The family of this 126-nucleotide RNA from Juglans regia is "Small nucleolar RNA snoR111".
The match comes from Rfam's covariance-model search (46 bits).
For this family Rfam cites "Experimental RNomics: identification of 140 candidates for small non-messenger RNAs in the plant Arabidopsis thaliana" (Marker et al., Curr Biol, 2002).
Gene Ontology terms of the family: nucleolus and RNA processing.
By type it is an H/ACA-box small nucleolar RNA.
The family has 6 seed sequences and 533 matches in Rfam 15.1.

RNA sequence: GUUCAGAAAGGGAGACAAUUCAUGUCUCCUACAUUGAGAAGAAUGGCAAGGUAUAGCAAAAUCAAUGGCCGAGAUAUCGUUUCAGGUGUCAUCUUUCUAUUGACAAUUCGAUUGUUGUUACUAAUC
Numbered sequence: 001g002u003u004c005a006g007a008a009a010g011g012g013a014g015a016c017a018a019u020u021c022a023u024g025u026c027u028c029c030u031a032c033a034u035u036g037a038g039a040a041g042a043a044u045g046g047c048a049a050g051g052u053a054u055a056g057c058a059a060a061a062u063c064a065a066u067g068g069c070c071g072a073g074a075u076a077u078c079g080u081u082u083c084a085g086g087u088g089u090c091a092u093c094u095u096u097c098u099a100u101u102g103a104c105a106a107u108u109c110g111a112u113u114g115u116u117g118u119u120a121c122u123a124a125u126c
Base pairs, nucleotide, nucleotide: 007035008034010032012028013027014026015025016024017023068126072122073121076112077111078110079109085107087105088104089103090102091101
Dot-bracket structure: ......((.(.((((((.....))))))...).))................................(...((..((((.....(.(((((.........))))).).))))........))...)